Lysine riboswitch aptamer: a 182-nucleotide sequence from Photobacterium aquimaris.
Taxonomically the source falls in Photobacterium (Bacteria, Pseudomonadati, Pseudomonadota, Vibrionaceae).
[Rfam]
RNA sequence: CACUACAGAAGAGGUGCGUUACCCAGGUAUUAAUAUUGUAGGGCCCAACCCUAACACAAUAUUAAGAGGGGGAGUAACGCCGAGAUACAAGGUGUUUGGGGCACAAUGUAUCGGCUAUGAAAGUUGAAUCUUUCAGGCUGUCAUCUAAGUCAGGUUGACUAUGAUGGGGAGCUUCUGGGUAG
Numbered sequence: 001c002a003c004u005a006c007a008g009a010a011g012a013g014g015u016g017c018g019u020u021a022c023c024c025a026g027g028u029a030u031u032a033a034u035a036u037u038g039u040a041g042g043g044c045c046c047a048a049c050c051c052u053a054a055c056a057c058a059a060u061a062u063u064a065a066g067a068g069g070g071g072g073a074g075u076a077a078c079g080c081c082g083a084g085a086u087a088c089a090a091g092g093u094g095u096u097u098g099g100g101g102c103a104c105a106a107u108g109u110a111u112c113g114g115c116u117a118u119g120a121a122a123g124u125u126g127a128a129u130c131u132u133u134c135a136g137g138c139u140g141u142c143a144u145c146u147a148a149g150u151c152a153g154g155u156u157g158a159c160u161a162u163g164a165u166g167g168g169g170a171g172c173u174u175c176u177g178g179g180u181a182g
Stems, first nucleotide, its partner, number of pairs: 006177006016080007024072001030065008084112006092104004113139004118135006141167005
The match comes from Rfam's covariance-model search (93 bits).